[Rfam]
RNA sequence: UUCUUAUCACGAGAGGGAGAGGGAAAGGCCCGAUGAAUCCUCGGCAACCAUCAGGAAGCCUGAAUGGUGCCAAGUCCUGCCGGUCAGACCGGGAAGAUAAGAG
Numbered sequence: 001u002u003c004u005u006a007u008c009a010c011g012a013g014a015g016g017g018a019g020a021g022g023g024a025a026a027g028g029c030c031c032g033a034u035g036a037a038u039c040c041u042c043g044g045c046a047a048c049c050a051u052c053a054g055g056a057a058g059c060c061u062g063a064a065u066g067g068u069g070c071c072a073a074g075u076c077c078u079g080c081c082g083g084u085c086a087g088a089c090c091g092g093g094a095a096g097a098u099a100a101g102a103g
Stems, first nucleotide, its partner, number of pairs: 001103008013042005021031003026078003043071004048067002051063003075095001080092005
RNA: SAM riboswitch aptamer (S box leader)